[Rfam]
RNA sequence: GUGGCUUCUUUUUAACUUUAGAUCCAGAAUUUUGAAUUAAAUAAAGUGAAUUUUUGUUUUGAAAAAGAAGCCUAAAUGGAAUUGUUUCCCUCGCUAUCCAUUGCUUCAAUUUUGAUGGCGCAAUUGGACGUCGGGGAACUACAUCU
Numbered sequence: 001g002u003g004g005c006u007u008c009u010u011u012u013u014a015a016c017u018u019u020a021g022a023u024c025c026a027g028a029a030u031u032u033u034g035a036a037u038u039a040a041a042u043a044a045a046g047u048g049a050a051u052u053u054u055u056g057u058u059u060u061g062a063a064a065a066a067g068a069a070g071c072c073u074a075a076a077u078g079g080a081a082u083u084g085u086u087u088c089c090c091u092c093g094c095u096a097u098c099c100a101u102u103g104c105u106u107c108a109a110u111u112u113u114g115a116u117g118g119c120g121c122a123a124u125u126g127g128a129c130g131u132c133g134g135g136g137a138a139c140u141a142c143a144u145c146u
Stems, first nucleotide, its partner, number of pairs: 002074001003072003008067006025056001026054007036047003084139007092130002097128004106118003
About this RNA: A member of the RNA family "Small nucleolar RNA snoR136" from Hibiscus trionum, 146 nucleotides long. The match comes from Rfam's covariance-model search (100 bits). Rfam links the family to the GO terms nucleolus and RNA processing.